[Rfam]
RNA sequence: ACUUAACGAUAAAGCACACCUCCUCCCAAGCUCUAUCGUCGGAUCGGCAACCCUCCUCCUCCUCCCGGUUGCCGGUCAGUAUCGAAAGCCCGGCGUACCUCCUCCCACGCCGGGCUUUCUCU
Numbered sequence: 001a002c003u004u005a006a007c008g009a010u011a012a013a014g015c016a017c018a019c020c021u022c023c024u025c026c027c028a029a030g031c032u033c034u035a036u037c038g039u040c041g042g043a044u045c046g047g048c049a050a051c052c053c054u055c056c057u058c059c060u061c062c063u064c065c066c067g068g069u070u071g072c073c074g075g076u077c078a079g080u081a082u083c084g085a086a087a088g089c090c091c092g093g094c095g096u097a098c099c100u101c102c103u104c105c106c107a108c109g110c111c112g113g114g115c116u117u118u119c120u121c122u
Stems, first nucleotide, its partner, number of pairs: 007038005013032003042077010086117011
RNA: Alphaproteobacterial ar14